RNA sequence: CCUAUGCCGGUAAGGGGGCGAAAGCCGCAGACCGGACGCGCGUUAGUCGGUGAGUGGCGCGGCGUCAACUAACCCCGACCGAC
Number, nucleotide and partner (000 for none) at each position: 001c015002c014003u013004a000005u000006g000007c035008c034009g033010g032011u031012a000013a003014g002015g001016g000017g026018g025019c024020g000021a000022a000023a000024g019025c018026c017027g000028c000029a000030g000031a011032c010033c009034g008035g007036a000037c061038g060039c059040g058041c057042g000043u000044u000045a000046g079047u078048c077049g076050g075051u000052g000053a000054g000055u000056g000057g041058c040059g039060c038061g037062g000063c000064g000065u000066c000067a000068a000069c000070u000071a000072a000073c000074c000075c050076c049077g048078a047079c046080c000081g000082a000083c000